RNA sequence: UUUUAAUCUCAGGGCGGGGCGAGAUUCCCCACCGGCGGUAACUUAACAAUAAGUCAGUCCCGAUUUAUUUUAAGGUAGCCCGCGAGCGCUCUUAUUGGUAUUUUUUAGCAACAAGAGGUCAGCAGAUCUGGUGUAACUCCAGAGCCGACGGUUAUAGUCCGGAUGAGAGAGUUUAAAA
Numbered sequence: 001u002u003u004u005a006a007u008c009u010c011a012g013g014g015c016g017g018g019g020c021g022a023g024a025u026u027c028c029c030c031a032c033c034g035g036c037g038g039u040a041a042c043u044u045a046a047c048a049a050u051a052a053g054u055c056a057g058u059c060c061c062g063a064u065u066u067a068u069u070u071u072a073a074g075g076u077a078g079c080c081c082g083c084g085a086g087c088g089c090u091c092u093u094a095u096u097g098g099u100a101u102u103u104u105u106u107a108g109c110a111a112c113a114a115g116a117g118g119u120c121a122g123c124a125g126a127u128c129u130g131g132u133g134u135a136a137c138u139c140c141a142g143a144g145c146c147g148a149c150g151g152u153u154a155u156a157g158u159c160c161g162g163a164u165g166a167g168a169g170a171g172u173u174u175a176a177a178a
Stems, first nucleotide, its partner, number of pairs: 003176004008171003017029003031158002033147002035083004078145002086123002127143005149161003